[Rfam]
RNA sequence: AUAAAAACGUUGAUGAGAAAAGUAAGUUUUCUAGGACCUGCCCAGAGAGACUAUGGUUGGUGAGAAUAGUCGUGGAAAGGAAAACUGAAAAUGGCCUCUAAGUUGGUUGUCCGAAUAUUUAAGACAAUCCGUGUGCGCACGUUACAGCGAUAGGGUAUAAAUUUGUACCUGAUGAGUUAUUAAUUGUGAGAUUGAUAUAAAAUUAAGGUGGUAACACGAGUGACCUCGUCCUUUUU
Numbered sequence: 001a002u003a004a005a006a007a008c009g010u011u012g013a014u015g016a017g018a019a020a021a022g023u024a025a026g027u028u029u030u031c032u033a034g035g036a037c038c039u040g041c042c043c044a045g046a047g048a049g050a051c052u053a054u055g056g057u058u059g060g061u062g063a064g065a066a067u068a069g070u071c072g073u074g075g076a077a078a079g080g081a082a083a084a085c086u087g088a089a090a091a092u093g094g095c096c097u098c099u100a101a102g103u104u105g106g107u108u109g110u111c112c113g114a115a116u117a118u119u120u121a122a123g124a125c126a127a128u129c130c131g132u133g134u135g136c137g138c139a140c141g142u143u144a145c146a147g148c149g150a151u152a153g154g155g156u157a158u159a160a161a162u163u164u165g166u167a168c169c170u171g172a173u174g175a176g177u178u179a180u181u182a183a184u185u186g187u188g189a190g191a192u193u194g195a196u197a198u199a200a201a202a203u204u205a206a207g208g209u210g211g212u213a214a215c216a217c218g219a220g221u222g223a224c225c226u227c228g229u230c231c232u233u234u235u236u
Stems, first nucleotide, its partner, number of pairs: 007103002015098003025086006038075003049071006106128006130141003177200004205233004216229005
Dot-bracket structure: ......((......(((.......((((((.......(((........((((((...........)))))).))).....)))))).........)))...))..((((((...........)))))).(((......)))...................................((((................))))....((((.......(((((....)))))))))...
RNA: T-box leader
Organism: Anaerococcus nagyae